[Rfam]
RNA sequence: CAACCCAAGGAGCGUUGCAGCGAAAUGUCUAUUUCGUCAGGCUUGGGUUAACGGCGCUAGUACAGCUGCCGCCAAAACGACGCUCACCUUGA
Numbered sequence: 001c002a003a004c005c006c007a008a009g010g011a012g013c014g015u016u017g018c019a020g021c022g023a024a025a026u027g028u029c030u031a032u033u034u035c036g037u038c039a040g041g042c043u044u045g046g047g048u049u050a051a052c053g054g055c056g057c058u059a060g061u062a063c064a065g066c067u068g069c070c071g072c073c074a075a076a077a078c079g080a081c082g083c084u085c086a087c088c089u090u091g092a
Stems, first nucleotide, its partner, number of pairs: 002049007021036006
SAH (S-adenosyl-L-homocysteine) riboswitch aptamer: a 92-nucleotide sequence from Polaromonas vacuolata.
The match comes from Rfam's covariance-model search (57 bits).
On this family, see Wang et al., Mol Cell 2008: "Riboswitches that sense S-adenosylhomocysteine and activate genes involved in coenzyme recycling".